Mammalian CPEB3 ribozyme: a 75-nucleotide RNA from Crocodylus porosus. The family's consensus secondary structure is taken from published work.
RNA sequence: ACACAAGAUCAAGGCCAUAACAGAAGUACUCACAGUGAGGCCCUGUCAGGUCCCAAUGAAUCUGCAAAUUCUGCU
Numbered sequence: 001a002c003a004c005a006a007g008a009u010c011a012a013g014g015c016c017a018u019a020a021c022a023g024a025a026g027u028a029c030u031c032a033c034a035g036u037g038a039g040g041c042c043c044u045g046u047c048a049g050g051u052c053c054c055a056a057u058g059a060a061u062c063u064g065c066a067a068a069u070u071c072u073g074c075u
Stems, first nucleotide, its partner, number of pairs: 013042004019075001021073005027037002047064005053058001